[Rfam]
Shown here is a 117-nucleotide RNA from Streptomyces sp. F-3, a member of the family "Streptomyces-metK RNA". It scores 114 bits against the family's covariance model. NCBI's taxonomy places the organism under Bacteria, Bacillati, Actinomycetota, Kitasatosporales, Streptomyces.
RNA sequence: GCGAGACAGGUGGGGCGGUGACCGGGCGCGACCGAUAAACUGUUCGCGGACGACGCCGGGUACGGUCCCCGUGUCGUCCGUCAAUGAUCAGCCAGCAGCCGCUGCAAACCCAGGGAG
Numbered sequence: 001g002c003g004a005g006a007c008a009g010g011u012g013g014g015g016c017g018g019u020g021a022c023c024g025g026g027c028g029c030g031a032c033c034g035a036u037a038a039a040c041u042g043u044u045c046g047c048g049g050a051c052g053a054c055g056c057c058g059g060g061u062a063c064g065g066u067c068c069c070c071g072u073g074u075c076g077u078c079c080g081u082c083a084a085u086g087a088u089c090a091g092c093c094a095g096c097a098g099c100c101g102c103u104g105c106a107a108a109c110c111c112a113g114g115g116a117g
Stems, first nucleotide, its partner, number of pairs: 048079006056073001057071004093104004
Dot-bracket structure: ...............................................((((((..(((((.......)))).))))))).............((((....)))).............